[Rfam]
RNA sequence: ACUAACUAAAAUAAAUGGGGCGGGAUCUCCUUGCCCUCUCGAUUGUCAUUCAGCACGGACAGACUAUAAGCCUGAUGGUCGUUCCCCAUCAGGCCUGAAAACCGCAAAACGCUGGAUAACAAUCUUCGAGGGUAGCGCUGCUACCCUUUUUUUUCUGGAGUAG
Numbered sequence: 001a002c003u004a005a006c007u008a009a010a011a012u013a014a015a016u017g018g019g020g021c022g023g024g025a026u027c028u029c030c031u032u033g034c035c036c037u038c039u040c041g042a043u044u045g046u047c048a049u050u051c052a053g054c055a056c057g058g059a060c061a062g063a064c065u066a067u068a069a070g071c072c073u074g075a076u077g078g079u080c081g082u083u084c085c086c087c088a089u090c091a092g093g094c095c096u097g098a099a100a101a102c103c104g105c106a107a108a109a110c111g112c113u114g115g116a117u118a119a120c121a122a123u124c125u126u127c128g129a130g131g132g133u134a135g136c137g138c139u140g141c142u143a144c145c146c147u148u149u150u151u152u153u154u155c156u157g158g159a160g161u162a163g
Stems, first nucleotide, its partner, number of pairs: 012162002018036004022030002037131005042123005048117002056104003060097003070094009